[Rfam]
RNA sequence: GACUGGUCCGAAGGUAGUGAAUUAUCUCAAUUGAUUGUUCACAGUCACAGAUCAAACUCUUUGUUCUAUUCUUCCCCUCCUUCUCACUACUGCACUUAACUAGUCUUAA
Numbered sequence: 001g002a003c004u005g006g007u008c009c010g011a012a013g014g015u016a017g018u019g020a021a022u023u024a025u026c027u028c029a030a031u032u033g034a035u036u037g038u039u040c041a042c043a044g045u046c047a048c049a050g051a052u053c054a055a056a057c058u059c060u061u062u063g064u065u066c067u068a069u070u071c072u073u074c075c076c077c078u079c080c081u082u083c084u085c086a087c088u089a090c091u092g093c094a095c096u097u098a099a100c101u102a103g104u105c106u107u108a109a
Stems, first nucleotide, its partner, number of pairs: 001105007010097002014093002016088005041069001043067002